[Rfam]
RNA sequence: AGUAAGGAUAGAGGAGCAAAGACCAUAAGUACGCAUUAGGAGGAUGAUGAGAUCCAAUGACGAUUGCGAAAAGGGGAAUUUGCCGAAGUGGAAAGAAUCUCAUAUUUCUUGAAACUGGUUCUGUUAUUGAAUAAAUACAGAACUGUCAUAUAGGAAACUAUAUGGAGGGCUAUCUUACGC
Numbered sequence: 001a002g003u004a005a006g007g008a009u010a011g012a013g014g015a016g017c018a019a020a021g022a023c024c025a026u027a028a029g030u031a032c033g034c035a036u037u038a039g040g041a042g043g044a045u046g047a048u049g050a051g052a053u054c055c056a057a058u059g060a061c062g063a064u065u066g067c068g069a070a071a072a073g074g075g076g077a078a079u080u081u082g083c084c085g086a087a088g089u090g091g092a093a094a095g096a097a098u099c100u101c102a103u104a105u106u107u108c109u110u111g112a113a114a115c116u117g118g119u120u121c122u123g124u125u126a127u128u129g130a131a132u133a134a135a136u137a138c139a140g141a142a143c144u145g146u147c148a149u150a151u152a153g154g155a156a157a158c159u160a161u162a163u164g165g166a167g168g169g170c171u172a173u174c175u176u177a178c179g180c
Stems, first nucleotide, its partner, number of pairs: 006175006016083005023076002032068004037063001039061001087116003093110005117144007125137004146165007
RNA: Lysine riboswitch aptamer
Organism: Peribacillus asahii